[Rfam]
RNA: Small nucleolar RNA R11/Z151
RNA sequence: AAGCUUAUGAUGAUAGAAAACAAUUAUCUUAGCGGAUUUCAGUGAGGUUUUUCAAUCAAUGAUCUGAAUUUGUUACACACACUGAGGCUU
Numbered sequence: 001a002a003g004c005u006u007a008u009g010a011u012g013a014u015a016g017a018a019a020a021c022a023a024u025u026a027u028c029u030u031a032g033c034g035g036a037u038u039u040c041a042g043u044g045a046g047g048u049u050u051u052u053c054a055a056u057c058a059a060u061g062a063u064c065u066g067a068a069u070u071u072g073u074u075a076c077a078c079a080c081a082c083u084g085a086g087g088c089u090u
Stems, first nucleotide, its partner, number of pairs: 001090005